A member of the RNA family "MIR390 microRNA precursor family" from Nicotiana sylvestris, 146 nucleotides long. It scores 96 bits against the family's covariance model. Pairs were carried over by alignment from the consensus structure, which was predicted with WAR. The organism belongs to Nicotiana, within Eukaryota.

RNA sequence: UGGAGGGAUCUGUAAAGCUCAGGAGGGAUAGCACCAUGAAAAAUGAUGUGAUAUAUGUUGGUUUUAAAUUUUUGAAUCUUUUUUUUUUCCAACAAAACUUUCAAUUAUUUUGGCGCUAUCCAUCCUGAGUUCUAUGGCUUCUUCUU
Numbered sequence: 001u002g003g004a005g006g007g008a009u010c011u012g013u014a015a016a017g018c019u020c021a022g023g024a025g026g027g028a029u030a031g032c033a034c035c036a037u038g039a040a041a042a043a044u045g046a047u048g049u050g051a052u053a054u055a056u057g058u059u060g061g062u063u064u065u066a067a068a069u070u071u072u073u074g075a076a077u078c079u080u081u082u083u084u085u086u087u088u089c090c091a092a093c094a095a096a097a098c099u100u101u102c103a104a105u106u107a108u109u110u111u112g113g114c115g116c117u118a119u120c121c122a123u124c125c126u127g128a129g130u131u132c133u134a135u136g137g138c139u140u141c142u143u144c145u146u
Stems, first nucleotide, its partner, number of pairs: 010137001016131009026121007034113002